[Rfam]
RNA sequence: AGUAUGGGACAUACCAGUACCAAAUUGUGACAAUUAAUAAACGGGAUAACCAGAUUAGAAAUGAAGAGAGUUAAAAGUAAAAAAUAAGAGAAAACCAUAAAGAUAUGGUGCGUCCGAGUGGACUCGAACCACCGACCCCCACCA
Numbered sequence: 001a002g003u004a005u006g007g008g009a010c011a012u013a014c015c016a017g018u019a020c021c022a023a024a025u026u027g028u029g030a031c032a033a034u035u036a037a038u039a040a041a042c043g044g045g046a047u048a049a050c051c052a053g054a055u056u057a058g059a060a061a062u063g064a065a066g067a068g069a070g071u072u073a074a075a076a077g078u079a080a081a082a083a084a085u086a087a088g089a090g091a092a093a094a095c096c097a098u099a100a101a102g103a104u105a106u107g108g109u110g111c112g113u114c115c116g117a118g119u120g121g122a123c124u125c126g127a128a129c130c131a132c133c134g135a136c137c138c139c140c141a142c143c144a
Stems, first nucleotide, its partner, number of pairs: 020045002026039003063071001106141003110137001115134002118132004
Dot-bracket structure: ...................((....(((........)))....)).................(.......)..................................(((.(....((.((((.......))))))..).)))...
Record summary:
Rfam assigns this 144-nucleotide RNA from Xenorhabdus cabanillasii to the family "Bacterial antisense RNA HPnc0260". The base pairs follow the family's consensus structure, which was predicted with CMfinder. The match comes from Rfam's covariance-model search (76 bits). For this family Rfam cites "The primary transcriptome of the major human pathogen Helicobacter pylori" (Sharma et al., Nature, 2010). The source organism's lineage runs through Bacteria, Pseudomonadati, Gammaproteobacteria, Morganellaceae and Xenorhabdus.